[Rfam]
Group II catalytic intron D1-D4-3: a 170-nucleotide sequence from Dorea formicigenerans. The source organism's lineage runs through Bacteria, Bacillota, Lachnospirales, Dorea and Dorea formicigenerans. The sequence is in the family's curated seed alignment. The family has 406 seed sequences and 4,274 matches in Rfam 15.1. Rfam links the family to the GO term Group II intron splicing. About the family: Group II introns are found in rRNA, tRNA and mRNA of organelles in fungi, plants and protists, and also in mRNA in bacteria. Pairs were carried over by alignment from the consensus structure.

RNA sequence: UCCAUCGCGAGGUGGAAUCUGAAGAAAGCUGUAAGCAAACUCUUGGUCCGACGGACAGAAAUCACAUAUAAGGAUUGGAAAUACGGAUAAGUCUGCAAAAGAAGAUGAAGUCCAAAAGUUGCUGGAAGUACGAGUAAAUGUGGCGGAUAGAUGAGAGGAAAGAGCGUGCA
Numbered sequence: 001u002c003c004a005u006c007g008c009g010a011g012g013u014g015g016a017a018u019c020u021g022a023a024g025a026a027a028g029c030u031g032u033a034a035g036c037a038a039a040c041u042c043u044u045g046g047u048c049c050g051a052c053g054g055a056c057a058g059a060a061a062u063c064a065c066a067u068a069u070a071a072g073g074a075u076u077g078g079a080a081a082u083a084c085g086g087a088u089a090a091g092u093c094u095g096c097a098a099a100a101g102a103a104g105a106u107g108a109a110g111u112c113c114a115a116a117a118g119u120u121g122c123u124g125g126a127a128g129u130a131c132g133a134g135u136a137a138a139u140g141u142g143g144c145g146g147a148u149a150g151a152u153g154a155g156a157g158g159a160a161a162g163a164g165c166g167u168g169c170a
Stems, first nucleotide, its partner, number of pairs: 001016006030168003036162001040157006046148005062143006073135001075133001077131001083129002085113004091106004
Dot-bracket structure: ((((((....)))))).............(((...(...(((((((((((...........((((((.....(.(.(.....((((((..((((........))))...))))..............)).).).)..)))))))))))...))))))....)...)))..